[Rfam]
RNA sequence: GACGAAUCUAUUGCCCGUCAAACCUGCGCAUUACCGUGUGUAGGGGAGGGCGGCGAAAAACGGCAGUU
Numbered sequence: 001g002a003c004g005a006a007u008c009u010a011u012u013g014c015c016c017g018u019c020a021a022a023c024c025u026g027c028g029c030a031u032u033a034c035c036g037u038g039u040g041u042a043g044g045g046g047a048g049g050g051c052g053g054c055g056a057a058a059a060a061c062g063g064c065a066g067u068u
Stems, first nucleotide, its partner, number of pairs: 011056003015053005023044009
RNA: ilvH RNA